RT-5 RNA: a 108-nucleotide RNA. The base pairs follow the family's consensus structure, which is taken from published work. It is one of the family's seed sequences.
RNA sequence: CUGCGCCUGCGAAGGACGUAGCGGCACCCAAAAGGAUACAUGGUCUUGCAGGCGGCCGGGUGCCGUACCGUCUGGUGAUCGCAAACUUUUGCGAUUCAAAGCCCUUUC
Numbered sequence: 001c002u003g004c005g006c007c008u009g010c011g012a013a014g015g016a017c018g019u020a021g022c023g024g025c026a027c028c029c030a031a032a033a034g035g036a037u038a039c040a041u042g043g044u045c046u047u048g049c050a051g052g053c054g055g056c057c058g059g060g061u062g063c064c065g066u067a068c069c070g071u072c073u074g075g076u077g078a079u080c081g082c083a084a085a086c087u088u089u090u091g092c093g094a095u096u097c098a099a100a101g102c103c104c105u106u107u108c
Base pairs, nucleotide, nucleotide: 005053006052007051008050009049010048011047014073015072017070018069021066022065023064024063025062026061027060028059042057043056044055045054079094080093081092082091083090084089